RNA sequence: CUGAGCUAGUGAUGAUAAAAGUUAUCCCUGUCUGAAUUUGAUACUUUCUCUGUGGAAGUGUAACUCUGAGGCUCAG
Numbered sequence: 001c002u003g004a005g006c007u008a009g010u011g012a013u014g015a016u017a018a019a020a021g022u023u024a025u026c027c028c029u030g031u032c033u034g035a036a037u038u039u040g041a042u043a044c045u046u047u048c049u050c051u052g053u054g055g056a057a058g059u060g061u062a063a064c065u066c067u068g069a070g071g072c073u074c075a076g
Stems, first nucleotide, its partner, number of pairs: 001076007